[Rfam]
RNA sequence: UGUUCUGACACGGGGUGCUCCGCAUGGGCGGGGCUGAGAUCAAACCCGGGAACCUGAUCAGGUAAUGCUGACGAAGGGAUGUCAUGGCUACCACAC
Numbered sequence: 001u002g003u004u005c006u007g008a009c010a011c012g013g014g015g016u017g018c019u020c021c022g023c024a025u026g027g028g029c030g031g032g033g034c035u036g037a038g039a040u041c042a043a044a045c046c047c048g049g050g051a052a053c054c055u056g057a058u059c060a061g062g063u064a065a066u067g068c069u070g071a072c073g074a075a076g077g078g079a080u081g082u083c084a085u086g087g088c089u090a091c092c093a094c095a096c
Stems, first nucleotide, its partner, number of pairs: 006084005011048004016042001017034005053077003058071004